Notes
The family of this 102-nucleotide RNA from Digitaria exilis is "Small nucleolar RNA Z118/Z121/Z120".

[Rfam]
RNA sequence: UAUUUGCUGUGAUGACUCCUAUUAGGACGGUAUCUGAAGGGGGUGGCUUUUAAGCGCAUUCCUUCUGAUUAUACCAAACUGAAUAUGGUUUCUGAGCAAAUC
Numbered sequence: 001u002a003u004u005u006g007c008u009g010u011g012a013u014g015a016c017u018c019c020u021a022u023u024a025g026g027a028c029g030g031u032a033u034c035u036g037a038a039g040g041g042g043g044u045g046g047c048u049u050u051u052a053a054g055c056g057c058a059u060u061c062c063u064u065c066u067g068a069u070u071a072u073a074c075c076a077a078a079c080u081g082a083a084u085a086u087g088g089u090u091u092c093u094g095a096g097c098a099a100a101u102c
Stems, first nucleotide, its partner, number of pairs: 002101006038066006

Rfam 15.1 lists 435 matches to the family in 31 species. Its family is annotated with RNA processing and nucleolus in the Gene Ontology. A reference for the family is Chen et al. (2003), "The high diversity of snoRNAs in plants: identification and comparative study of 120 snoRNA genes from Oryza sativa", Nucleic Acids Res. It is annotated as a C/D-box small nucleolar RNA. It scores 77 bits against the family's covariance model.